[Rfam]
RNA sequence: UCUAGCGCCUUGUUUCUGACUCCCAGCCGAUGUCAGCCCUGCCACACUUCCCCGGUGGCAGGUCGGACCGGAGGGGAAUCAGGAUCAAGGGGCAGGUCCCG
Numbered sequence: 001u002c003u004a005g006c007g008c009c010u011u012g013u014u015u016c017u018g019a020c021u022c023c024c025a026g027c028c029g030a031u032g033u034c035a036g037c038c039c040u041g042c043c044a045c046a047c048u049u050c051c052c053c054g055g056u057g058g059c060a061g062g063u064c065g066g067a068c069c070g071g072a073g074g075g076g077a078a079u080c081a082g083g084a085u086c087a088a089g090g091g092g093c094a095g096g097u098c099c100c101g
Stems, first nucleotide, its partner, number of pairs: 010088003014084003018080002021077004027071003033067002036064001038062008
Rfam assigns this 101-nucleotide sequence from Marisediminicola antarctica to the family "mraW RNA".
The base pairs follow the family's consensus structure, which is taken from published work.